[Rfam]
RNA: Small nucleolar RNA SNORD79
RNA sequence: AGCUGUCUAUGAUGACUUUUGUUUUCAAAACAAUGGGAAUCUCUCUGAAAAAGAGUGAAGACAACUUUUUUCUGAUGCAGUA
Numbered sequence: 001a002g003c004u005g006u007c008u009a010u011g012a013u014g015a016c017u018u019u020u021g022u023u024u025u026c027a028a029a030a031c032a033a034u035g036g037g038a039a040u041c042u043c044u045c046u047g048a049a050a051a052a053g054a055g056u057g058a059a060g061a062c063a064a065c066u067u068u069u070u071u072c073u074g075a076u077g078c079a080g081u082a
Stems, first nucleotide, its partner, number of pairs: 002081005